Shown here is a 178-nucleotide RNA sequence from Vibrio gelatinilyticus, a member of the family "Lysine riboswitch aptamer". Lineage of the source: Bacteria > Pseudomonadota > Vibrionales > Vibrionaceae > Vibrio. Its family is annotated with lysine biosynthetic process in the Gene Ontology.
Nucleotides: 178
Base pairs, nucleotide, nucleotide: 006173007172008171009170010169011168016082017081018080019079020078021077022076024074031065032064033063034062035061036060037059086116087115088114089113090112091111092110093109094108095107096106117143118142119141120140122139123138125136126135127134145163146162147161148160149159150158151157
Number, partner (000 for none) and nucleotide at each position: 001000u002000c003000a004000a005000g006173c007172a008171g009170a010169a011168g012000a013000g014000g015000a016082g017081c018080a019079c020078u021077g022076c023000c024074c025000a026000g027000g028000u029000a030000u031065a032064u033063a034062u035061u036060u037059c038000g039000u040000g041000g042000a043000u044000c045000c046000a047000c048000a049000a050000a051000u052000c053000c054000g055000a056000u057000a058000c059037g060036a061035g062034a063033u064032a065031u066000u067000u068000g069000a070000a071000g072000g073000g074024g075000a076022g077021c078020a079019g080018u081017g082016c083000c084000g085000a086116g087115a088114u089113g090112a091111a092110c093109u094108g095107a096106a097000g098000u099000u100000g101000u102000u103000g104000g105000a106096u107095u108094c109093a110092g111091u112090u113089u114088a115087u116086c117143g118142g119141u120140u121000a122139a123138a124000u125136g126135g127134g128000c129000u130000g131000a132000a133000u134127c135126c136125c137000u138123u139122u140120a141119a142118c143117u144000g145163u146162c147161a148160c149159u150158g151157g152000a153000u154000u155000u156000u157151c158150u159149a160148g161147u162146g163145a164000g165000g166000a167000g168011c169010u170009u171008c172007u173006g174000a175000g176000g177000u178000u